The record is a 66-nucleotide RNA sequence from Eumeta japonica, which matches "mir-2 microRNA precursor family" in Rfam. The organism belongs to Eumeta, within Eukaryota.

RNA sequence: UUUGUCAUCAAAGUGGUUUGUCAUAGGUCAAUGCGUAACUAUCACAGCCAGCUUUGAUGAGCAGAG
Number, nucleotide and partner (000 for none) at each position: 001u000002u000003u000004g000005u060006c059007a058008u057009c056010a055011a054012a053013g052014u050015g049016g048017u047018u046019u000020g045021u044022c000023a042024u041025a040026g039027g000028u000029c000030a000031a000032u000033g000034c000035g000036u000037a000038a000039c026040u025041a024042u023043c000044a021045c020046a018047g017048c016049c015050a014051g000052c013053u012054u011055u010056g009057a008058u007059g006060a005061g000062c000063a000064g000065a000066g000
A search with the family's covariance model found it, with a score of 47 bits.